The record is a 73-nucleotide sequence from Ornithorhynchus anatinus, which matches "Small nucleolar RNA Z40" in Rfam. Rfam 15.1 lists 615 matches to the family in 541 species. Its family is annotated with nucleolus and RNA processing in the Gene Ontology. For this family Rfam cites "The high diversity of snoRNAs in plants: identification and comparative study of 120 snoRNA genes from Oryza sativa" (Chen et al., Nucleic Acids Res, 2003). The base pairs follow the family's consensus structure, which was predicted with PFOLD. NCBI's taxonomy places the organism under Eukaryota, Teleostomi, Euteleostomi, Tetrapoda, Ornithorhynchus.
RNA sequence: AAAUGUUAUGAUGAUUGGCCAAAUGUUCAACUGCUCUGAAGAGAGUGAAUGAAAACAGCCUUUCUGAACAUCC
Numbered sequence: 001a002a003a004u005g006u007u008a009u010g011a012u013g014a015u016u017g018g019c020c021a022a023a024u025g026u027u028c029a030a031c032u033g034c035u036c037u038g039a040a041g042a043g044a045g046u047g048a049a050u051g052a053a054a055a056c057a058g059c060c061u062u063u064c065u066g067a068a069c070a071u072c073c
Base pairs, nucleotide, nucleotide: 003071004070005069006068